[Rfam]
RNA sequence: CUCCACAGCUACUGGUCUGGAACUGUUCAGAACUGUAGCAGUUGCAGGAUUCCUUCUGUGGAAGAUAAACUGUUACAUACUACUAAACUCCUCAGAUCAUCUGUCUUUUGGGGAGGCCUUUCUGUGUAACUAACAGUG
Numbered sequence: 001c002u003c004c005a006c007a008g009c010u011a012c013u014g015g016u017c018u019g020g021a022a023c024u025g026u027u028c029a030g031a032a033c034u035g036u037a038g039c040a041g042u043u044g045c046a047g048g049a050u051u052c053c054u055u056c057u058g059u060g061g062a063a064g065a066u067a068a069a070c071u072g073u074u075a076c077a078u079a080c081u082a083c084u085a086a087a088c089u090c091c092u093c094a095g096a097u098c099a100u101c102u103g104u105c106u107u108u109u110g111g112g113g114a115g116g117c118c119u120u121u122c123u124g125u126g127u128a129a130c131u132a133a134c135a136g137u138g
Stems, first nucleotide, its partner, number of pairs: 003061004017047003021043005075127005088115003091111002094108003
The record is a 138-nucleotide RNA sequence from Tinamus guttatus, which matches "Small nucleolar RNA SNORA41" in Rfam. It scores 89 bits against the family's covariance model. NCBI's taxonomy places the organism under Eukaryota, Metazoa, Vertebrata, Sauropsida, Tinamus. Its family is annotated with RNA processing and nucleolus in the Gene Ontology. ACA41 is a member of the H/ACA class of snoRNA that guide the sites of modification of uridines to pseudouridines.